Shown here is a 158-nucleotide sequence from Pantoea vagans, a member of the family "Glm Y RNA activator of glmS mRNA". By type it is a small RNA. Its Rfam clan is "Glm clan".
RNA sequence: CGUUGCUCAUUCUCCUGUCUAUGAAUGCCCCGCAUUGCGGUUGAGCUCAUAAAAACUGAAUGACGCACCAAACGGAGCCUGCCGUCCACCCCACCGAUAAUCGUUUGCUUUGCAACGUUAUCAAGCAUCGGACGUAACGUUGAGUAAGGCUCCACCUA
Numbered sequence: 001c002g003u004u005g006c007u008c009a010u011u012c013u014c015c016u017g018u019c020u021a022u023g024a025a026u027g028c029c030c031c032g033c034a035u036u037g038c039g040g041u042u043g044a045g046c047u048c049a050u051a052a053a054a055a056c057u058g059a060a061u062g063a064c065g066c067a068c069c070a071a072a073c074g075g076a077g078c079c080u081g082c083c084g085u086c087c088a089c090c091c092c093a094c095c096g097a098u099a100a101u102c103g104u105u106u107g108c109u110u111u112g113c114a115a116c117g118u119u120a121u122c123a124a125g126c127a128u129c130g131g132a133c134g135u136a137a138c139g140u141u142g143a144g145u146a147a148g149g150c151u152c153c154a155c156c157u158a
Stems, first nucleotide, its partner, number of pairs: 005066002007063006020051005027046002074153007083134005096122005137145002